[Rfam]
RNA sequence: GUCGGAUGGUUAGCGCCCAUCUGUAACUGUAGUUCAGGACAUUGAGGGUCACUUGGAUGGCGUGCGUGUGAGAUCCACUUGAGUAGGUGCUCCAGUGUAGAGGAGCUGCCCGAGCGAAGCUGGCGCAUCGCUAUCGGCAUCCCACCGGAAGGAGGGGUGUCGAGGGCAAAAAGCGGGACUCUGGCCUCCGGGCUGGGGUCAUUGCGAUAAUGAGACUUGAACCGUGUGCAGGCCAGAAAUGGAACAGCAAAAAGGGUCCGUGUUCAGCGGUCGCCGGAAUACGGCUCUGAGCUGGCUGCACCUACUCAACUUACGCAACAUCGUUGGACGGUGCUCCAC
Numbered sequence: 001g002u003c004g005g006a007u008g009g010u011u012a013g014c015g016c017c018c019a020u021c022u023g024u025a026a027c028u029g030u031a032g033u034u035c036a037g038g039a040c041a042u043u044g045a046g047g048g049u050c051a052c053u054u055g056g057a058u059g060g061c062g063u064g065c066g067u068g069u070g071a072g073a074u075c076c077a078c079u080u081g082a083g084u085a086g087g088u089g090c091u092c093c094a095g096u097g098u099a100g101a102g103g104a105g106c107u108g109c110c111c112g113a114g115c116g117a118a119g120c121u122g123g124c125g126c127a128u129c130g131c132u133a134u135c136g137g138c139a140u141c142c143c144a145c146c147g148g149a150a151g152g153a154g155g156g157g158u159g160u161c162g163a164g165g166g167c168a169a170a171a172a173g174c175g176g177g178a179c180u181c182u183g184g185c186c187u188c189c190g191g192g193c194u195g196g197g198g199u200c201a202u203u204g205c206g207a208u209a210a211u212g213a214g215a216c217u218u219g220a221a222c223c224g225u226g227u228g229c230a231g232g233c234c235a236g237a238a239a240u241g242g243a244a245c246a247g248c249a250a251a252a253a254g255g256g257u258c259c260g261u262g263u264u265c266a267g268c269g270g271u272c273g274c275c276g277g278a279a280u281a282c283g284g285c286u287c288u289g290a291g292c293u294g295g296c297u298g299c300a301c302c303u304a305c306u307c308a309a310c311u312u313a314c315g316c317a318a319c320a321u322c323g324u325u326g327g328a329c330g331g332u333g334c335u336c337c338a339c
Stems, first nucleotide, its partner, number of pairs: 001040003004022006011015001027037003046337003050333004058326005066316007079309012092295005098289001102288007110277002114274004119268005125263004130167003134163010145152002170211001214258005225249003233242003
This 339-nucleotide RNA sequence from Capsaspora owczarzaki belongs to the Rfam family "Metazoan signal recognition particle RNA". Rfam describes the family as follows. The signal recognition particle (SRP) is a universally conserved ribonucleoprotein. Taxonomically the source falls in Capsaspora owczarzaki (Eukaryota, Opisthokonta, Ministeriida, Capsasporidae).